[Rfam]
RNA sequence: CGAACCGCGGCGGGAGAGUCCCCGUCGAGAACGCCCUCCGGGGCGUGGUGCGGGGCGCCGAAGGAGCAACCCUCCCCGGGAAUCUCUCAGGCCCACGUACCGCCGCGGCGAG
Numbered sequence: 001c002g003a004a005c006c007g008c009g010g011c012g013g014g015a016g017a018g019u020c021c022c023c024g025u026c027g028a029g030a031a032c033g034c035c036c037u038c039c040g041g042g043g044c045g046u047g048g049u050g051c052g053g054g055g056c057g058c059c060g061a062a063g064g065a066g067c068a069a070c071c072c073u074c075c076c077c078g079g080g081a082a083u084c085u086c087u088c089a090g091g092c093c094c095a096c097g098u099a100c101c102g103c104c105g106c107g108g109c110g111a112g
Base pairs, nucleotide, nucleotide: 006107007106008105009104010103011102012101013100020055021054022053023052024051025050057092058091059090060088061087064086065085066084070079071078
A member of the RNA family "Glycine riboswitch aptamer" from Cellulomonas sp. SLBN-39, 112 nucleotides long.
The family is grouped with related families in Rfam's "Glycine riboswitch clan".
This family represents the bacterial glycine riboswitch.